[Rfam]
RNA sequence: GUAACCUUUAAAUCCAGUCCCGUGAGGCUGGCAAGGGCGACGGUGAAUAACGCAGAUAUAGUUGGGAUGGUUAUGCCCUUCUUUAUGUGCGCACGAAGCUUCUUGUCAGUGAGACAAGAAGCUUUUUUUGU
Numbered sequence: 001g002u003a004a005c006c007u008u009u010a011a012a013u014c015c016a017g018u019c020c021c022g023u024g025a026g027g028c029u030g031g032c033a034a035g036g037g038c039g040a041c042g043g044u045g046a047a048u049a050a051c052g053c054a055g056a057u058a059u060a061g062u063u064g065g066g067a068u069g070g071u072u073a074u075g076c077c078c079u080u081c082u083u084u085a086u087g088u089g090c091g092c093a094c095g096a097a098g099c100u101u102c103u104u105g106u107c108a109g110u111g112a113g114a115c116a117a118g119a120a121g122c123u124u125u126u127u128u129u130g131u
Stems, first nucleotide, its partner, number of pairs: 005036004014031006051091004056086003060082002095125013
Shown here is a 131-nucleotide RNA from Brevibacillus laterosporus, a member of the family "PyrR binding site". A search with the family's covariance model found it, with a score of 63 bits. This family represents the PyrR binding site and terminator structure. This RNA structure is found upstream of a variety of genes involved in pyrimidine biosynthesis and transport. The alignment also includes a portion of the antiterminator structure.